[Rfam]
RNA sequence: GAGAAAUGAGGAUACAGAAUUCAUCUUACUUCUGUAGUGAAGACUUCAGAUCCAACUCUGAUCUCACACUGGAG
Numbered sequence: 001g002a003g004a005a006a007u008g009a010g011g012a013u014a015c016a017g018a019a020u021u022c023a024u025c026u027u028a029c030u031u032c033u034g035u036a037g038u039g040a041a042g043a044c045u046u047c048a049g050a051u052c053c054a055a056c057u058c059u060g061a062u063c064u065c066a067c068a069c070u071g072g073a074g
Stems, first nucleotide, its partner, number of pairs: 001065004
The record is a 74-nucleotide RNA from Glaucidium brasilianum, which matches "Small nucleolar RNA SNORD19" in Rfam. The family has 22 seed sequences and 1,431 matches in Rfam 15.1. The source organism's lineage runs through Eukaryota, Sauria, Archosauria, Neognathae and Glaucidium. Pairs were carried over by alignment from the consensus structure. Its Rfam clan is "SNORD19 clan". A search with the family's covariance model found it, with a score of 39 bits.